Rfam assigns this 83-nucleotide RNA from Tenuibacillus multivorans to the family "c-di-GMP-I riboswitch aptamer". NCBI's taxonomy places the organism under Bacteria, Bacillati, Bacillota, Bacillaceae, Tenuibacillus.
Nucleotides: 083
Base pairs, nucleotide, nucleotide: 012037013036018031019030020029021028022027040077041076042075045073046072047071048068049067050066055062056061
Number, partner (000 for none) and nucleotide at each position: 001000u002000g003000c004000a005000g006000a007000a008000a009000a010000u011000g012037g013036c014000a015000a016000a017000c018031c019030u020029c021028u022027u023000g024000a025000a026000a027022a028021a029020g030019a031018g032000c033000g034000a035000c036013g037012c038000a039000a040077a041076g042075c043000g044000u045073g046072u047071g048068g049067u050066c051000u052000a053000a054000g055062g056061g057000u058000u059000u060000u061056c062055c063000u064000a065000u066050g067049a068048u069000a070000g071047c072046a073045c074000a075042g076041c077040u078000g079000c080000c081000u082000c083000a